[Rfam]
RNA: glmS glucosamine-6-phosphate activated ribozyme aptamer
RNA sequence: CAAGCAAUAUAAGCGCCAGAGCUUGGUUUCGCGCGGGAAGAGAUUUGGAGCGGUUGUCUGGGUGAUGCUGCAAAGAAUCUUGUACCGGCAAAUGCAAGCUGACGAGGUGGGGGUGUUCGAAAUAUUCGGCGGGGACCUCCCGGUGUGGCAUCACACCGUAACCGUAAAGGCAAAACGAAUAGGCGACUGUUCCGACAAACCUUACGGAUGGAUGCAG
Numbered sequence: 001c002a003a004g005c006a007a008u009a010u011a012a013g014c015g016c017c018a019g020a021g022c023u024u025g026g027u028u029u030c031g032c033g034c035g036g037g038a039a040g041a042g043a044u045u046u047g048g049a050g051c052g053g054u055u056g057u058c059u060g061g062g063u064g065a066u067g068c069u070g071c072a073a074a075g076a077a078u079c080u081u082g083u084a085c086c087g088g089c090a091a092a093u094g095c096a097a098g099c100u101g102a103c104g105a106g107g108u109g110g111g112g113g114u115g116u117u118c119g120a121a122a123u124a125u126u127c128g129g130c131g132g133g134g135a136c137c138u139c140c141c142g143g144u145g146u147g148g149c150a151u152c153a154c155a156c157c158g159u160a161a162c163c164g165u166a167a168a169g170g171c172a173a174a175a176c177g178a179a180u181a182g183g184c185g186a187c188u189g190u191u192c193c194g195a196c197a198a199a200c201c202u203u204a205c206g207g208a209u210g211g212a213u214g215c216a217g
Stems, first nucleotide, its partner, number of pairs: 020100006029091001109140005117129004141158006162207006177192006